Notes
The family of this 211-nucleotide sequence from Trinickia terrae is "Burkholderia sRNA Bp1_Cand738_SIPHT". The family's RNA type in Rfam is small RNA. A reference for the family is Khoo et al. (2012), "Computational discovery and RT-PCR validation of novel Burkholderia conserved and Burkholderia pseudomallei unique sRNAs", BMC Genomics. It scores 167 bits against the family's covariance model.

RNA sequence: AAAAAAACCAGCGGCUAAAUCGCGCUGGCGAGGACUAACUCAAGGCCGUUGGUGCCGUGCAGGAUUCGGCAUACGGUGACGCGUUGCGUCGAAGGACCGGAGGUGUGGUAACGACAAUACUGCGGGGUCCCUGCUACCAAUGUGGACGGAUUCUAGCAGGCUCUAAUAGAUCGUCAACACUAUAAAAACUCAAACCUAUAACAAAUUGUAA
Numbered sequence: 001a002a003a004a005a006a007a008c009c010a011g012c013g014g015c016u017a018a019a020u021c022g023c024g025c026u027g028g029c030g031a032g033g034a035c036u037a038a039c040u041c042a043a044g045g046c047c048g049u050u051g052g053u054g055c056c057g058u059g060c061a062g063g064a065u066u067c068g069g070c071a072u073a074c075g076g077u078g079a080c081g082c083g084u085u086g087c088g089u090c091g092a093a094g095g096a097c098c099g100g101a102g103g104u105g106u107g108g109u110a111a112c113g114a115c116a117a118u119a120c121u122g123c124g125g126g127g128u129c130c131c132u133g134c135u136a137c138c139a140a141u142g143u144g145g146a147c148g149g150a151u152u153c154u155a156g157c158a159g160g161c162u163c164u165a166a167u168a169g170a171u172c173g174u175c176a177a178c179a180c181u182a183u184a185a186a187a188a189c190u191c192a193a194a195c196c197u198a199u200a201a202c203a204a205a206u207u208g209u210a211a
Stems, first nucleotide, its partner, number of pairs: 008028006047113004053071005078090005141179003146174004152170004